[Rfam]
RNA sequence: UGCGGUAGCAGGACUUAACCCACAUGUGAACAGUGUAGCAGAUCCCUAUGUUCACAGUGGUUAAGUUCUGCCUCCCCA
Numbered sequence: 001u002g003c004g005g006u007a008g009c010a011g012g013a014c015u016u017a018a019c020c021c022a023c024a025u026g027u028g029a030a031c032a033g034u035g036u037a038g039c040a041g042a043u044c045c046c047u048a049u050g051u052u053c054a055c056a057g058u059g060g061u062u063a064a065g066u067u068c069u070g071c072c073u074c075c076c077c078a
Base pairs, nucleotide, nucleotide: 011068012067013066014065015064016063017062018061019060020059026055027054028053029052030051031050032049
A member of the RNA family "mir-27 microRNA precursor family" from Electrophorus electricus, 78 nucleotides long. NCBI's taxonomy places the organism under Eukaryota, Bilateria, Chordata, Neopterygii, Electrophorus. The family's consensus secondary structure was predicted with RNAalifold. A reference for the family is Yao et al. (2008), "MicroRNA profile of Marek's disease virus-transformed T-cell line MSB-1: predominance of virus-encoded microRNAs", J Virol.